[Rfam]
RNA sequence: AAGUGUUAUAGCUCUUUUAGAAUUUCUCUAGCAGGUUUUCCGGUUUUCACUGGAGCCCCU
Numbered sequence: 001a002a003g004u005g006u007u008a009u010a011g012c013u014c015u016u017u018u019a020g021a022a023u024u025u026c027u028c029u030a031g032c033a034g035g036u037u038u039u040c041c042g043g044u045u046u047u048c049a050c051u052g053g054a055g056c057c058c059c060u
Stems, first nucleotide, its partner, number of pairs: 034057004040053005
Rfam assigns this 60-nucleotide RNA from Piliocolobus tephrosceles to the family "U7 small nuclear RNA". A search with the family's covariance model found it, with a score of 62 bits. For this family Rfam cites "U7 snRNAs: a computational survey" (Marz et al., Genomics Proteomics Bioinformatics, 2007).